[Rfam]
RNA sequence: UGGGCAGCGAUAAUUAAAAAGUAAUUCCUCAUUCUCAAUGCUGUUAUCAUGGCAUAAUGGACAAUUAUGGUAUCCAUAGAAUUUGAGCUUCC
Numbered sequence: 001u002g003g004g005c006a007g008c009g010a011u012a013a014u015u016a017a018a019a020a021g022u023a024a025u026u027c028c029u030c031a032u033u034c035u036c037a038a039u040g041c042u043g044u045u046a047u048c049a050u051g052g053c054a055u056a057a058u059g060g061a062c063a064a065u066u067a068u069g070g071u072a073u074c075c076a077u078a079g080a081a082u083u084u085g086a087g088c089u090u091c092c
Stems, first nucleotide, its partner, number of pairs: 003092002006089002